[Rfam]
The record is a 79-nucleotide RNA sequence from Flexivirga caeni, which matches "ZMP/ZTP riboswitch aptamer (pfl RNA motif)" in Rfam. The match comes from Rfam's covariance-model search (53 bits). The organism belongs to Flexivirga, within Bacteria.
RNA sequence: CUGAGGGCACACGACUGGCGACGGGUGGGUCACCACCGGGGAGUGUGAGUUCGUCGUAUCGCCCGCCUGGGUACGACUC
Numbered sequence: 001c002u003g004a005g006g007g008c009a010c011a012c013g014a015c016u017g018g019c020g021a022c023g024g025g026u027g028g029g030u031c032a033c034c035a036c037c038g039g040g041g042a043g044u045g046u047g048a049g050u051u052c053g054u055c056g057u058a059u060c061g062c063c064c065g066c067c068u069g070g071g072u073a074c075g076a077c078u079c
Base pairs, nucleotide, nucleotide: 003052004051005050008047009046010045011044012043015040016039017067018066019065020064025036026035027034028033056074057073058072059071060070